[Rfam]
RNA: c-di-GMP-I riboswitch aptamer
RNA sequence: AUCCGAUCAGGGCAAACUUGCUGAAAAGCAAGGACGCAAAGCCAUAGGGUCUAAUGUUCGCAAGAACGAUGACAGCCUGGCUGCCACU
Numbered sequence: 001a002u003c004c005g006a007u008c009a010g011g012g013c014a015a016a017c018u019u020g021c022u023g024a025a026a027a028g029c030a031a032g033g034a035c036g037c038a039a040a041g042c043c044a045u046a047g048g049g050u051c052u053a054a055u056g057u058u059c060g061c062a063a064g065a066a067c068g069a070u071g072a073c074a075g076c077c078u079g080g081c082u083g084c085c086a087c088u
Stems, first nucleotide, its partner, number of pairs: 012037002017032006040082004046078003049073003056067004